The record is a 76-nucleotide RNA, which matches "tpke11" in Rfam.
For this family Rfam cites "A survey of small RNA-encoding genes in Escherichia coli" (Hershberg et al., Nucleic Acids Res, 2003).
By type it is a small RNA.
RNA sequence: UGCAGGGUAAUUAACCGGCACGGGCGCGGAGUUUACUCCACGCCCGUGCUCGUAUGUUAAGGGCAGAAAAAAGAGA
Numbered sequence: 001u002g003c004a005g006g007g008u009a010a011u012u013a014a015c016c017g018g019c020a021c022g023g024g025c026g027c028g029g030a031g032u033u034u035a036c037u038c039c040a041c042g043c044c045c046g047u048g049c050u051c052g053u054a055u056g057u058u059a060a061g062g063g064c065a066g067a068a069a070a071a072a073g074a075g076a
Stems, first nucleotide, its partner, number of pairs: 003017001005015001018049009028039004

Rfam's curators write: In Yersinia located in ICR upstream dnaJ (chaperone)gene. Has temperature responsive RNA structure. Its family is annotated with response to temperature stimulus in the Gene Ontology.